RNA sequence: GUCGUCCUUAAUGAUGUGAAUGGAGUAAAGCUUCCAGGGCCUUCAUUUGCUGAUGUGGCAUGAC
Numbered sequence: 001g002u003c004g005u006c007c008u009u010a011a012u013g014a015u016g017u018g019a020a021u022g023g024a025g026u027a028a029a030g031c032u033u034c035c036a037g038g039g040c041c042u043u044c045a046u047u048u049g050c051u052g053a054u055g056u057g058g059c060a061u062g063a064c
Stems, first nucleotide, its partner, number of pairs: 001064005016050010032039002
A member of the RNA family "Selenocysteine insertion sequence 1" from Loxodonta africana, 64 nucleotides long. The base pairs follow the family's consensus structure, which is taken from published work. A reference for the family is Walczak et al. (1996), "A novel RNA structural motif in the selenocysteine insertion element of eukaryotic selenoprotein mRNAs", RNA. The match comes from Rfam's covariance-model search (35 bits).